[Rfam]
The record is a 93-nucleotide RNA from Microbacterium oryzae, which matches "Glycine riboswitch aptamer" in Rfam. Rfam links the family to the GO term glycine biosynthetic process. The base pairs follow the family's consensus structure. About the family: This family represents the bacterial glycine riboswitch.
RNA sequence: UCACUCUGGAAAGCGGCGCACCUGCGCCCGCCGACGGGGCAAGCGGCGCUCCGGCGCCGUGGAAACUCUCAGGCCUAUGACAGAGCGGGAGGA
Dot-bracket structure: ((.(((((......((((......)))).(((((..(((..........................))))).)))......))))).)).....